Shown here is an 87-nucleotide sequence from Gossypium aridum, a member of the family "MIR7486 microRNA precursor family". The base pairs follow the family's consensus structure, which was predicted with RNAalifold. Taxonomically the source falls in Gossypium (Eukaryota, Streptophyta, Spermatophyta, Malvaceae).

RNA sequence: CACGUCAGCGCGCUUUGCUGGCGUGGCAACAAAGCGCAGCCUGCAAAACGCGAUAUGUGUCCACGUCAGCAAAGCACGCUGACGUGG
Numbered sequence: 001c002a003c004g005u006c007a008g009c010g011c012g013c014u015u016u017g018c019u020g021g022c023g024u025g026g027c028a029a030c031a032a033a034g035c036g037c038a039g040c041c042u043g044c045a046a047a048a049c050g051c052g053a054u055a056u057g058u059g060u061c062c063a064c065g066u067c068a069g070c071a072a073a074g075c076a077c078g079c080u081g082a083c084g085u086g087g
Stems, first nucleotide, its partner, number of pairs: 001086010012075010023064004029058003033054001035052003